[Rfam]
RNA sequence: AUCUCUGCGCUUGGGGCAAUGACAAAGUCAGUGAGGUGAAACCAAGACGUGUCAAUUGCUGGUUGAAACUAUUUCCACAUUUUAAUGAAAGAUCUAAAGUGAUUGUAUAAUUAAAAAAUGUAUCAAAUUUGCUAUUCAUACAUAUGA
Numbered sequence: 001a002u003c004u005c006u007g008c009g010c011u012u013g014g015g016g017c018a019a020u021g022a023c024a025a026a027g028u029c030a031g032u033g034a035g036g037u038g039a040a041a042c043c044a045a046g047a048c049g050u051g052u053c054a055a056u057u058g059c060u061g062g063u064u065g066a067a068a069c070u071a072u073u074u075c076c077a078c079a080u081u082u083u084a085a086u087g088a089a090a091g092a093u094c095u096a097a098a099g100u101g102a103u104u105g106u107a108u109a110a111u112u113a114a115a116a117a118a119u120g121u122a123u124c125a126a127a128u129u130u131g132c133u134a135u136u137c138a139u140a141c142a143u144a145u146g147a
Stems, first nucleotide, its partner, number of pairs: 021053004027048003035043003086125003089121001091119001093117001095115001136147004
A member of the RNA family "U4 spliceosomal RNA" from Marchantia polymorpha, 147 nucleotides long.
A search with the family's covariance model found it, with a score of 63 bits.
The base pairs follow the family's consensus structure, which is taken from published work.